[Rfam]
RNA sequence: CAACACCAUAACUCCUCGCAAACCGAGACCUAUAGGGAGUAUAAAACAUCGUCUCUUUAUCCAGUAGUGAGGGAUUACUGGAAAUAAGUUUCGCA
Numbered sequence: 001c002a003a004c005a006c007c008a009u010a011a012c013u014c015c016u017c018g019c020a021a022a023c024c025g026a027g028a029c030c031u032a033u034a035g036g037g038a039g040u041a042u043a044a045a046a047c048a049u050c051g052u053c054u055c056u057u058u059a060u061c062c063a064g065u066a067g068u069g070a071g072g073g074a075u076u077a078c079u080g081g082a083a084a085u086a087a088g089u090u091u092c093g094c095a
Stems, first nucleotide, its partner, number of pairs: 012039005018033001025055005060082007

The family of this 95-nucleotide sequence is "PhotoRC-II RNA". Pairs were carried over by alignment from the consensus structure, which is taken from published work. Rfam classes the family as a cis-regulatory element. It is one of the family's seed sequences.